RNA sequence: CGUUAUACGCAAGCGCCAGAACCGCUCCGGCGGUUGACGAGGUGGGAGGUUAAUCGAAAUUGUUCGGCGGGUGCCUCCCCGUUUUGCUUCCGAGCGCAGCCAUCCUGAAAACUUCCGGGCAACCGGAUCGACAGGCAGGAGGGCAGGAAGUCGA
Numbered sequence: 001c002g003u004u005a006u007a008c009g010c011a012a013g014c015g016c017c018a019g020a021a022c023c024g025c026u027c028c029g030g031c032g033g034u035u036g037a038c039g040a041g042g043u044g045g046g047a048g049g050u051u052a053a054u055c056g057a058a059a060u061u062g063u064u065c066g067g068c069g070g071g072u073g074c075c076u077c078c079c080c081g082u083u084u085u086g087c088u089u090c091c092g093a094g095c096g097c098a099g100c101c102a103u104c105c106u107g108a109a110a111a112c113u114u115c116c117g118g119g120c121a122a123c124c125g126g127a128u129c130g131a132c133a134g135g136c137a138g139g140a141g142g143g144c145a146g147g148a149a150g151u152c153g154a
Stems, first nucleotide, its partner, number of pairs: 020035006045078005054067004079096001081095004099144003103140003114127005

The family of this 154-nucleotide sequence from Anaerotruncus massiliensis is "glmS glucosamine-6-phosphate activated ribozyme aptamer".
This entry contains a glucosamine-6-phosphate activated ribozyme that is found in the mRNA for GlmS. GlmS is an enzyme that uses fructose-6-phosphate and glutamine to generate glucosamine-6-phosphate.
It scores 65 bits against the family's covariance model.
Rfam classes the family as a riboswitch.